[Rfam]
RNA sequence: GUUAAUCUUCAGGGAUUGGUGAAAGUCCUAACCGGUGGUAGAGUCCACGAGCCUUUUGGGGUUGAAUUGGUGAAAUUCCAAUACCGACAGUAAAGUCUGGAUGAAAGAAGAUGUGU
Numbered sequence: 001g002u003u004a005a006u007c008u009u010c011a012g013g014g015a016u017u018g019g020u021g022a023a024a025g026u027c028c029u030a031a032c033c034g035g036u037g038g039u040a041g042a043g044u045c046c047a048c049g050a051g052c053c054u055u056u057u058g059g060g061g062u063u064g065a066a067u068u069g070g071u072g073a074a075a076u077u078c079c080a081a082u083a084c085c086g087a088c089a090g091u092a093a094a095g096u097c098u099g100g101a102u103g104a105a106a107g108a109a110g111a112u113g114u115g116u
Base pairs, nucleotide, nucleotide: 005112006111007110008109009108010107018028019027031096032095033086034085035048036047037046038045043084044083051062052061053060066082067081068080069079070078088099089098090097